[Rfam]
RNA sequence: AACCCCAUUAUAGUACCGCUUCUUCUUCCCUCAGAACAAGCGGCUAUGCUAAUGGGGAAGAGCAACUUCUUCUAUAGUCUGAAGGGGAACGUUUCGUACGUUCUCCUAUAUGAAAUGGCAGAACAUUUCAUA
Numbered sequence: 001a002a003c004c005c006c007a008u009u010a011u012a013g014u015a016c017c018g019c020u021u022c023u024u025c026u027u028c029c030c031u032c033a034g035a036a037c038a039a040g041c042g043g044c045u046a047u048g049c050u051a052a053u054g055g056g057g058a059a060g061a062g063c064a065a066c067u068u069c070u071u072c073u074a075u076a077g078u079c080u081g082a083a084g085g086g087g088a089a090c091g092u093u094u095c096g097u098a099c100g101u102u103c104u105c106c107u108a109u110a111u112g113a114a115a116u117g118g119c120a121g122a123a124c125a126u127u128u129c130a131u132a
Stems, first nucleotide, its partner, number of pairs: 004056004016043004072118003085107004

The record is a 132-nucleotide RNA from Eleutherodactylus coqui, which matches "Small nucleolar RNA SNORA29" in Rfam. The family has 26 seed sequences and 960 matches in Rfam 15.1. ACA29 is a member of the H/ACA class of snoRNA that guide the sites of modification of uridines to pseudouridines. It is annotated as an H/ACA-box small nucleolar RNA. For this family Rfam cites "RNomics: an experimental approach that identifies 201 candidates for novel, small, non-messenger RNAs in mouse" (Huttenhofer et al., EMBO J, 2001). The family's consensus secondary structure was predicted with PFOLD. NCBI's taxonomy places the organism under Eukaryota, Craniata, Batrachia, Eleutherodactylidae, Eleutherodactylus.